[Rfam]
RNA sequence: ACAGUCUGAAAAUCACUUGGAGUCUUCUGUGGCCCCUGGUGUGAUAACUGUGCCGAUAGCAGAGGGAGCAUGAAACUCAUUGCCUGCAGUAAAGUGUGGGGAGUGAAACCCAUGUUGCUAUAAUC
Numbered sequence: 001a002c003a004g005u006c007u008g009a010a011a012a013u014c015a016c017u018u019g020g021a022g023u024c025u026u027c028u029g030u031g032g033c034c035c036c037u038g039g040u041g042u043g044a045u046a047a048c049u050g051u052g053c054c055g056a057u058a059g060c061a062g063a064g065g066g067a068g069c070a071u072g073a074a075a076c077u078c079a080u081u082g083c084c085u086g087c088a089g090u091a092a093a094g095u096g097u098g099g100g101g102a103g104u105g106a107a108a109c110c111c112a113u114g115u116u117g118c119u120a121u122a123a124u125c
Stems, first nucleotide, its partner, number of pairs: 006050001008048001010045001014041003022033003065118001067116005077106005085098003
Rfam assigns this 125-nucleotide RNA sequence from Bucco capensis to the family "Small nucleolar RNA ACA64". Gene Ontology terms of the family: RNA processing and nucleolus. The literature on the family includes a 2006 paper in RNA by Schattner et al., "A computational screen for mammalian pseudouridylation guide H/ACA RNAs".